[Rfam]
Source information: This 184-nucleotide RNA sequence from Photobacterium lipolyticum belongs to the Rfam family "Lysine riboswitch aptamer". Pairs were carried over by alignment from the consensus structure, which is taken from published work. A search with the family's covariance model found it, with a score of 132 bits. Rfam links the family to the GO term lysine biosynthetic process. NCBI's taxonomy places the organism under Bacteria, Pseudomonadota, Gammaproteobacteria, Vibrionales, Photobacterium. Riboswitches are metabolite binding domains within certain messenger RNAs that serve as precision sensors for their corresponding targets.
RNA sequence: ACUAAGGGUAGAGGCGCAUUGUCUAUGAGUAGCAAGCUGUAGGGUGAUUCCGAUGAUAGUUUGCGAAAGGAGCCGAUGCCGAAGUUAGAAAGGUUUAUCAAGCCUUCUUGCUGGGGUUGUCACCGAAUAGGGGCAACACUGCCAUAGUAUAUAAUUACAUUAACUAUGGAGCGCUACUGUGGGG
Numbered sequence: 001a002c003u004a005a006g007g008g009u010a011g012a013g014g015c016g017c018a019u020u021g022u023c024u025a026u027g028a029g030u031a032g033c034a035a036g037c038u039g040u041a042g043g044g045u046g047a048u049u050c051c052g053a054u055g056a057u058a059g060u061u062u063g064c065g066a067a068a069g070g071a072g073c074c075g076a077u078g079c080c081g082a083a084g085u086u087a088g089a090a091a092g093g094u095u096u097a098u099c100a101a102g103c104c105u106u107c108u109u110g111c112u113g114g115g116g117u118u119g120u121c122a123c124c125g126a127a128u129a130g131g132g133g134c135a136a137c138a139c140u141g142c143c144a145u146a147g148u149a150u151a152u153a154a155u156u157a158c159a160u161u162a163a164c165u166a167u168g169g170a171g172c173g174c175u176a177c178u179g180u181g182g183g184g
Stems, first nucleotide, its partner, number of pairs: 007178005016079006023072002032064008083112003087108004092104003113140002116137006123130001142169007